[Rfam]
RNA sequence: UGUUUAAAGAAGAAACAGGCCGUUUCUCACCUUACAGCAUAGCUAGUAGGGUUGUAUAGUGUAGAGAUAUAUUUUAUACUAUGAUAUAUAAGACGGCAUAUGCCGUCUUUUAUUUAUAUAU
Dot-bracket structure: ..........((((((.....)))))).(((..((.((...))..))..)))......................................(((((((....))))))).............
Shown here is a 121-nucleotide sequence from Clostridium niameyense, a member of the family "Ribosomal protein L20 leader". The match comes from Rfam's covariance-model search (62 bits). A reference for the family is Zengel and Lindahl (1994), "Diverse mechanisms for regulating ribosomal protein synthesis in Escherichia coli", Prog Nucleic Acid Res Mol Biol. Its family is annotated with regulation of gene expression in the Gene Ontology. NCBI's taxonomy places the organism under Bacteria, Bacillati, Bacillota, Clostridia, Clostridium. The base pairs follow the family's consensus structure, which was predicted with CMfinder.